About this RNA
Shown here is a 281-nucleotide RNA from Tichodroma muraria, a member of the family "ryfA RNA". The family's consensus secondary structure was predicted with RNAalifold. The family's RNA type in Rfam is small RNA. From the family's description: This family consists of a number of bacterial RNA genes of 305 bases in length.
[Rfam]
RNA sequence: GUGUCCCUUUCCGCCAUCUCGCAAAUGGGCGCCGGUCCAGGGAAAGGUGUAUUCACAACCGUAAAGCAACCUUUAACCGGGCUUGUAUCCACCGACUUAUCACCGGUGGUGAACGGUGGAGCGGUAAGCAGCAGGGACCGCAUAAUGAAACGCUAAUUAUGUAUCGCGUUCAUUGUCGCCAGCGUACUCGUGGUAAAGAGUGAUGAACCGAGUGGGUUUGUUGCUUAUGCUAUGACAGCGCAGGACAAGUAGCGUUAAGGCCGCCUCUGGCGGCCUUUUUU
Numbered sequence: 001g002u003g004u005c006c007c008u009u010u011c012c013g014c015c016a017u018c019u020c021g022c023a024a025a026u027g028g029g030c031g032c033c034g035g036u037c038c039a040g041g042g043a044a045a046g047g048u049g050u051a052u053u054c055a056c057a058a059c060c061g062u063a064a065a066g067c068a069a070c071c072u073u074u075a076a077c078c079g080g081g082c083u084u085g086u087a088u089c090c091a092c093c094g095a096c097u098u099a100u101c102a103c104c105g106g107u108g109g110u111g112a113a114c115g116g117u118g119g120a121g122c123g124g125u126a127a128g129c130a131g132c133a134g135g136g137a138c139c140g141c142a143u144a145a146u147g148a149a150a151c152g153c154u155a156a157u158u159a160u161g162u163a164u165c166g167c168g169u170u171c172a173u174u175g176u177c178g179c180c181a182g183c184g185u186a187c188u189c190g191u192g193g194u195a196a197a198g199a200g201u202g203a204u205g206a207a208c209c210g211a212g213u214g215g216g217u218u219u220g221u222u223g224c225u226u227a228u229g230c231u232a233u234g235a236c237a238g239c240g241c242a243g244g245a246c247a248a249g250u251a252g253c254g255u256u257a258a259g260g261c262c263g264c265c266u267c268u269g270g271c272g273g274c275c276u277u278u279u280u281u
Stems, first nucleotide, its partner, number of pairs: 007046006014028004029036002059182001067085003070081003088120007098111005121141005142176007151166002154163002184246002187243002190241003257278001258276008